Source information:
Rfam assigns this 89-nucleotide RNA sequence from Pseudolycoriella hygida to the family "mir-282 microRNA precursor family". Rfam links the family to the GO terms RISC complex and miRNA-mediated post-transcriptional gene silencing. Pairs were carried over by alignment from the consensus structure, which was predicted with RNAalifold. Rfam 15.1 lists 136 matches to the family in 128 species.

[Rfam]
RNA sequence: CGUCAAGGAAGAUGUAGCCUCUCCUAGGCUUUGUCUGUAUUUUUGUGAAACCAGACAUAGCCUGAAAGAGGUUAGGUAUACCUUGAAGA
Numbered sequence: 001c002g003u004c005a006a007g008g009a010a011g012a013u014g015u016a017g018c019c020u021c022u023c024c025u026a027g028g029c030u031u032u033g034u035c036u037g038u039a040u041u042u043u044u045g046u047g048a049a050a051c052c053a054g055a056c057a058u059a060g061c062c063u064g065a066a067a068g069a070g071g072u073u074a075g076g077u078a079u080a081c082c083u084u085g086a087a088g089a
Base pairs, nucleotide, nucleotide: 012077013076015074016073017072018071019070020069027062028061029060030059032057033056034055035054036053